[Rfam]
RNA sequence: UGUAAACUUUAGGGGUGUUCCUAUAUGGAACUGAGACAGUCCCUUUGAACCUGAUAUGGUUAGUACCAGCGAAGGAAAAAGUUAAGAGAUGUAU
Numbered sequence: 001u002g003u004a005a006a007c008u009u010u011a012g013g014g015g016u017g018u019u020c021c022u023a024u025a026u027g028g029a030a031c032u033g034a035g036a037c038a039g040u041c042c043c044u045u046u047g048a049a050c051c052u053g054a055u056a057u058g059g060u061u062a063g064u065a066c067c068a069g070c071g072a073a074g075g076a077a078a079a080a081g082u083u084a085a086g087a088g089a090u091g092u093a094u
Base pairs, nucleotide, nucleotide: 006082007081008080009079010078011044012043013042014041016038017031018030019029020028021027050075051074052073057068058067059066

The record is a 94-nucleotide RNA sequence from Flavivirga eckloniae, which matches "TPP riboswitch aptamer (THI element)" in Rfam.